[Rfam]
RNA sequence: CGCAAUCCCGCCUGACACUCAGUCUCAACCUCUGAUGUUAGGAAGGUGAGCAAAGUCUCAGGUGUCAUUGCGG
Numbered sequence: 001c002g003c004a005a006u007c008c009c010g011c012c013u014g015a016c017a018c019u020c021a022g023u024c025u026c027a028a029c030c031u032c033u034g035a036u037g038u039u040a041g042g043a044a045g046g047u048g049a050g051c052a053a054a055g056u057c058u059c060a061g062g063u064g065u066c067a068u069u070g071c072g073g
Stems, first nucleotide, its partner, number of pairs: 002071005009064007017056003024050004029046003
This 73-nucleotide RNA from Brugia malayi belongs to the Rfam family "mir-87 microRNA precursor family".
It is one of the family's seed sequences.
Pairs were carried over by alignment from the consensus structure, which was predicted with RNAalifold.
Gene Ontology terms of the family: miRNA-mediated post-transcriptional gene silencing and RISC complex.
On this family, see Sempere et al., Dev Biol 2003: "Temporal regulation of microRNA expression in Drosophila melanogaster mediated by hormonal signals and broad-Complex gene activity".